[Rfam]
RNA sequence: UGGCUGUAGCAAUAUGAAUAUUUGAAGCUAUCUGGCCGUUUGUUGUUAAUUUAGUCAACAUUUCUGCUUACCGAGCUUCUUACAUUU
Numbered sequence: 001u002g003g004c005u006g007u008a009g010c011a012a013u014a015u016g017a018a019u020a021u022u023u024g025a026a027g028c029u030a031u032c033u034g035g036c037c038g039u040u041u042g043u044u045g046u047u048a049a050u051u052u053a054g055u056c057a058a059c060a061u062u063u064c065u066g067c068u069u070a071c072c073g074a075g076c077u078u079c080u081u082a083c084a085u086u087u
Stems, first nucleotide, its partner, number of pairs: 024079006034068003038064001042059004
Shown here is an 87-nucleotide RNA from Spinacia oleracea, a member of the family "Small nucleolar RNA snoR109". Its family is annotated with nucleolus and RNA processing in the Gene Ontology. NCBI's taxonomy places the organism under Eukaryota, Streptophytina, Pentapetalae, Caryophyllales, Spinacia. The literature on the family includes a 2002 paper in Curr Biol by Marker et al., "Experimental RNomics: identification of 140 candidates for small non-messenger RNAs in the plant Arabidopsis thaliana".